[Rfam]
About this RNA:
Histone 3' UTR stem-loop: a 47-nucleotide RNA from Donacobius atricapilla. Pairs were carried over by alignment from the consensus structure, which is taken from published work.

Nucleotides: 047
Base pairs, nucleotide, nucleotide: 006021007020008019009018010017011016
Number, partner (000 for none) and nucleotide at each position: 001000c002000c003000a004000a005000c006021g007020g008019c009018u010017c011016u012000u013000u014000u015000a016011a017010g018009a019008g020007c021006c022000a023000c024000c025000c026000a027000a028000a029000u030000u031000u032000u033000c034000a035000u036000a037000a038000a039000a040000a041000g042000a043000g044000c045000u046000g047000u

Rfam classes the family as a cis-regulatory element.
Taxonomically the source falls in Donacobius (Eukaryota, Bilateria, Vertebrata, Mimidae).
Rfam's curators write: The mRNAs of metazoan histone genes lack a poly-A tail. 3' end processing occurs at a site between a highly conserved stem-loop (modelled by this family) and a purine rich region around 20 nts downstream (the histone downstream element, or HDE).